[Rfam]
RNA sequence: AUUGUUCACUCUCCUUCAAAGGCUUCUAGCAUUGCUCUUCCUUUUCUGUUAAGCUUGAAGCCUUUGAUUGGAGUGGACAA
Numbered sequence: 001a002u003u004g005u006u007c008a009c010u011c012u013c014c015u016u017c018a019a020a021g022g023c024u025u026c027u028a029g030c031a032u033u034g035c036u037c038u039u040c041c042u043u044u045u046c047u048g049u050u051a052a053g054c055u056u057g058a059a060g061c062c063u064u065u066g067a068u069u070g071g072a073g074u075g076g077a078c079a080a
Stems, first nucleotide, its partner, number of pairs: 006076007015067001017066010
A member of the RNA family "MIR473 microRNA precursor family" from Coptis chinensis, 80 nucleotides long. The match comes from Rfam's covariance-model search (61 bits). The literature on the family includes a 2005 paper in Plant Cell by Lu et al., "Novel and mechanical stress-responsive MicroRNAs in Populus trichocarpa that are absent from Arabidopsis". Its family is annotated with miRNA-mediated post-transcriptional gene silencing and RISC complex in the Gene Ontology.